[Rfam]
RNA sequence: GCCCGGAGUCGUGACUGGCGCAUCGAGGUGGAACUGACCACCGGGGAGCGAUCGAGCGGAACGGUGCCGCGCGCCUGGGCACCCCCG
Numbered sequence: 001g002c003c004c005g006g007a008g009u010c011g012u013g014a015c016u017g018g019c020g021c022a023u024c025g026a027g028g029u030g031g032a033a034c035u036g037a038c039c040a041c042c043g044g045g046g047a048g049c050g051a052u053c054g055a056g057c058g059g060a061a062c063g064g065u066g067c068c069g070c071g072c073g074c075c076u077g078g079g080c081a082c083c084c085c086c087g
Stems, first nucleotide, its partner, number of pairs: 004054003009051004015045002017075005028041004064082005
RNA: ZMP/ZTP riboswitch aptamer (pfl RNA motif)
Organism: Frankia casuarinae